[Rfam]
RNA sequence: GGAUGGAACUCUGGAGAAUCCCUGAAAAACGGGUGCCGAAGGUGCAAGUGUGUUACACGCAAAUCUCUCAGGCAAAAGGACAGAGCUGUUUAU
Numbered sequence: 001g002g003a004u005g006g007a008a009c010u011c012u013g014g015a016g017a018a019u020c021c022c023u024g025a026a027a028a029a030c031g032g033g034u035g036c037c038g039a040a041g042g043u044g045c046a047a048g049u050g051u052g053u054u055a056c057a058c059g060c061a062a063a064u065c066u067c068u069c070a071g072g073c074a075a076a077a078g079g080a081c082a083g084a085g086c087u088g089u090u091u092a093u
Base pairs, nucleotide, nucleotide: 007087009085010084011083012082013081020033021032022031035073036072037071038069039068042067044065048060049059